[Rfam]
RNA sequence: ACUAACUUAAGCAACGUAAACCCUACCUGCUUUUACGUCCUUGCGACCCCUUAGUCGCGCCAGUGUGAAUAAGCUUUCCUUAAAAUAU
Numbered sequence: 001a002c003u004a005a006c007u008u009a010a011g012c013a014a015c016g017u018a019a020a021c022c023c024u025a026c027c028u029g030c031u032u033u034u035a036c037g038u039c040c041u042u043g044c045g046a047c048c049c050c051u052u053a054g055u056c057g058c059g060c061c062a063g064u065g066u067g068a069a070u071a072a073g074c075u076u077u078c079c080u081u082a083a084a085a086u087a088u
Base pairs, nucleotide, nucleotide: 036067037066040063041062042059043058044057045056046055047054
RNA: BsrC
Organism: Virgibacillus phasianinus